[Rfam]
RNA sequence: GGAUGUGAGGGCAAUCUGGCUGCAACAUCUGUCACCCCACUGAUCACCAGGGUUGAUUCGGCUGAUCUGGCUGGCUAGGUGGGUGUCCCCUUCCUCCCUCACUGCUCCAUGUGCAUCCCUCCUGAAGCUGUGCGCUCGGUCGAAGAGGACGAACUUCCCCGAUAGAGGAGGACCGUUCUUCGGUCAAGGGUAUACGAGUAGCUGUGCUCGCCUGCUGGAACCUCCAAACACGCUCUCCAGGUCCAUUUGUAGGAGAACGUAGGGUAGUCAAGCGUCCAAGACUCCAGACGCAUCCAAAUGAGGCGCUGCACGUGGCAUCUGCCUUUCAAA
Numbered sequence: 001g002g003a004u005g006u007g008a009g010g011g012c013a014a015u016c017u018g019g020c021u022g023c024a025a026c027a028u029c030u031g032u033c034a035c036c037c038c039a040c041u042g043a044u045c046a047c048c049a050g051g052g053u054u055g056a057u058u059c060g061g062c063u064g065a066u067c068u069g070g071c072u073g074g075c076u077a078g079g080u081g082g083g084u085g086u087c088c089c090c091u092u093c094c095u096c097c098c099u100c101a102c103u104g105c106u107c108c109a110u111g112u113g114c115a116u117c118c119c120u121c122c123u124g125a126a127g128c129u130g131u132g133c134g135c136u137c138g139g140u141c142g143a144a145g146a147g148g149a150c151g152a153a154c155u156u157c158c159c160c161g162a163u164a165g166a167g168g169a170g171g172a173c174c175g176u177u178c179u180u181c182g183g184u185c186a187a188g189g190g191u192a193u194a195c196g197a198g199u200a201g202c203u204g205u206g207c208u209c210g211c212c213u214g215c216u217g218g219a220a221c222c223u224c225c226a227a228a229c230a231c232g233c234u235c236u237c238c239a240g241g242u243c244c245a246u247u248u249g250u251a252g253g254a255g256a257a258c259g260u261a262g263g264g265u266a267g268u269c270a271a272g273c274g275u276c277c278a279a280g281a282c283u284c285c286a287g288a289c290g291c292a293u294c295c296a297a298a299u300g301a302g303g304c305g306c307u308g309c310a311c312g313u314g315g316c317a318u319c320u321g322c323c324u325u326u327c328a329a330a
Stems, first nucleotide, its partner, number of pairs: 001108003005102007014092001018090002025086009035074002037070003042067004047061002116171002118168004122139004127135002140162003147158003201273003207267002211263005222255004228250003232246001300325005305319001307317003
A member of the RNA family "7SK RNA" from Ursus maritimus, 330 nucleotides long. From the family's description: 7SK was discovered as an abundant small nuclear RNA in the mid-70s but a possible function has only recently been suggested. For this family Rfam cites "Structural analyses of the 7SK ribonucleoprotein (RNP), the most abundant human small RNP of unknown function" (Wassarman and Steitz, Mol Cell Biol, 1991).